A member of the RNA family "TD-2 RNA" from Treponema ruminis, 90 nucleotides long. The family is grouped with related families in Rfam's "TD (Treponema denticola) motifs". Taxonomically the source falls in Treponema (Bacteria, Spirochaetota, Spirochaetia, Treponematales). By type it is a small RNA.

RNA sequence: UGUUGCAUGGAUGCAACGACUAGCGAGUUUUUGUUAUCAACAAAAACUCGGCCAUGAAAAAAUUACAUGGAUGUAAUUUUUUCAUGCUAA
Dot-bracket structure: ((((((......)))))).....(((((((((((.....)))))))))))..((((((((((((((......))))))))))))))....